Shown here is a 47-nucleotide sequence from Streptomyces collinus, a member of the family "L31-Actinobacteria ribosomal protein leader". The family's consensus secondary structure is taken from published work. It is annotated as a cis-regulatory leader. The organism belongs to Streptomyces collinus, within Bacteria.
RNA sequence: UCGGCUCCGGUUCACGCCUCCGCACCCCGCGAAUGCGACCCGGCGCC
Numbered sequence: 001u002c003g004g005c006u007c008c009g010g011u012u013c014a015c016g017c018c019u020c021c022g023c024a025c026c027c028c029g030c031g032a033a034u035g036c037g038a039c040c041c042g043g044c045g046c047c
Base pairs, nucleotide, nucleotide: 003047004046005045007043008042009041010040015037016036017035019033021031022030023029